[Rfam]
RNA sequence: GUGCAUCCAGUAGGAAUUGAACCUGCAAAUUCACCAAUUAUGAGUUUAGUGCUUUAACCAUUCAGCCAAGGAUGC
Dot-bracket structure: ..((((((.(((((.......)))))..............((.(((.((((.......)))).))))).))))))
Numbered sequence: 001g002u003g004c005a006u007c008c009a010g011u012a013g014g015a016a017u018u019g020a021a022c023c024u025g026c027a028a029a030u031u032c033a034c035c036a037a038u039u040a041u042g043a044g045u046u047u048a049g050u051g052c053u054u055u056a057a058c059c060a061u062u063c064a065g066c067c068a069a070g071g072a073u074g075c
Stems, first nucleotide, its partner, number of pairs: 003075006010026005041068002044066003048062004

Rfam assigns this 75-nucleotide RNA from Lactuca sativa to the family "Plastid-ycf2 5UTR RNA". It is annotated as a cis-regulatory element. The match comes from Rfam's covariance-model search (90 bits). Taxonomically the source falls in Lactuca (Eukaryota, Embryophyta, Tracheophyta, Gunneridae). For this family Rfam cites "Retrograde signaling in plants: A critical review focusing on the GUN pathway and beyond" (Richter et al., Plant Commun, 2023). The family's consensus secondary structure was predicted with LocARNA. The family has 204 seed sequences and 3,521 matches in Rfam 15.1.